Description:
Rfam assigns this 428-nucleotide part of an RNA from Funneliformis mosseae to the family "Eukaryotic large subunit ribosomal RNA". The organism belongs to Funneliformis, within Eukaryota.
RNA sequence: UGACCUCAAAUCAGGUAAGAAUACCCGCUGAACUUAAGCAUAUCAAUAAGCGGAGGAAAAGAAAAUAACAAUGAUUCCCUCAGUAACGGCGAGUGAAGUGGGAUGAGCUCAAAUUUUAAAUCUAUUGGGUACCUACCUUAAUAGAGUUGUAUUUUGAAGAAACGUUUUCUGCGUCCUGGAUUAGCCCAAAUCCUUUGGAAUAAGGUAUCAUGGAGGGUGAGAAUCCCGUUCAUGGUUAAUCUUAAGGAUGCUUUACGAUACGUUUUCCAAGAGUCGAGUUGUUUGGGAUUGCAGCUCAAAAUGGGAGGUAAAUUUCUCCUAAAGCUAAAUAUUGGCGAGAGACCGAUAGCAAACAAGUACCGUGAGGGAAAGAUGAAAAGAACUUUGAAAAGAGAGUUAAAUAGUACGUGAAAUUGUUGGAAAGGAAA
Numbered sequence: 001u002g003a004c005c006u007c008a009a010a011u012c013a014g015g016u017a018a019g020a021a022u023a024c025c026c027g028c029u030g031a032a033c034u035u036a037a038g039c040a041u042a043u044c045a046a047u048a049a050g051c052g053g054a055g056g057a058a059a060a061g062a063a064a065a066u067a068a069c070a071a072u073g074a075u076u077c078c079c080u081c082a083g084u085a086a087c088g089g090c091g092a093g094u095g096a097a098g099u100g101g102g103a104u105g106a107g108c109u110c111a112a113a114u115u116u117u118a119a120a121u122c123u124a125u126u127g128g129g130u131a132c133c134u135a136c137c138u139u140a141a142u143a144g145a146g147u148u149g150u151a152u153u154u155u156g157a158a159g160a161a162a163c164g165u166u167u168u169c170u171g172c173g174u175c176c177u178g179g180a181u182u183a184g185c186c187c188a189a190a191u192c193c194u195u196u197g198g199a200a201u202a203a204g205g206u207a208u209c210a211u212g213g214a215g216g217g218u219g220a221g222a223a224u225c226c227c228g229u230u231c232a233u234g235g236u237u238a239a240u241c242u243u244a245a246g247g248a249u250g251c252u253u254u255a256c257g258a259u260a261c262g263u264u265u266u267c268c269a270a271g272a273g274u275c276g277a278g279u280u281g282u283u284u285g286g287g288a289u290u291g292c293a294g295c296u297c298a299a300a301a302u303g304g305g306a307g308g309u310a311a312a313u314u315u316c317u318c319c320u321a322a323a324g325c326u327a328a329a330u331a332u333u334g335g336c337g338a339g340a341g342a343c344c345g346a347u348a349g350c351a352a353a354c355a356a357g358u359a360c361c362g363u364g365a366g367g368g369a370a371a372g373a374u375g376a377a378a379a380g381a382a383c384u385u386u387g388a389a390a391a392g393a394g395a396g397u398u399a400a401a402u403a404g405u406a407c408g409u410g411a412a413a414u415u416g417u418u419g420g421a422a423a424g425g426a427a428a
Stems, first nucleotide, its partner, number of pairs: 024055001025053005035042002065072002076103004086094002106326004112154002115151001117149003121145009159267002161264004166260001168258002171251007180240007190206001192205004209213001216226002276297007303320005360367002383394004